A member of the RNA family "mir-460 microRNA precursor family" from Gymnorhina tibicen, 76 nucleotides long. A reference for the family is Xu et al. (2006), "Identification of microRNAs from different tissues of chicken embryo and adult chicken", FEBS Lett. The match comes from Rfam's covariance-model search (78 bits).

RNA sequence: CUUGACAGCACCUGCAUUGUACACACUGUGUGUGGGGCUGGGAAUGCACAGCGCAUACAAUGUGGAUGCUGGGAAG
Numbered sequence: 001c002u003u004g005a006c007a008g009c010a011c012c013u014g015c016a017u018u019g020u021a022c023a024c025a026c027u028g029u030g031u032g033u034g035g036g037g038c039u040g041g042g043a044a045u046g047c048a049c050a051g052c053g054c055a056u057a058c059a060a061u062g063u064g065g066a067u068g069c070u071g072g073g074a075a076g
Base pairs, nucleotide, nucleotide: 012065013064015062016061017060018059019058020057021056024053026051027050028049029048030047031046

Annotation
Gene Ontology terms of the family: RISC complex and miRNA-mediated post-transcriptional gene silencing.